[Rfam]
RNA sequence: AAAAAAUAGGGGUUGUAGGGGAUGAAAAAUCCCCUGCCGCCUUCAGGAAGGUGCUCAGACAGCUUUGCUGUCGUCGAC
Numbered sequence: 001a002a003a004a005a006a007u008a009g010g011g012g013u014u015g016u017a018g019g020g021g022a023u024g025a026a027a028a029a030u031c032c033c034c035u036g037c038c039g040c041c042u043u044c045a046g047g048a049a050g051g052u053g054c055u056c057a058g059a060c061a062g063c064u065u066u067g068c069u070g071u072c073g074u075c076g077a078c
Stems, first nucleotide, its partner, number of pairs: 015037008058072005
RNA: Clostridiales-2 RNA
Organism: Geosporobacter ferrireducens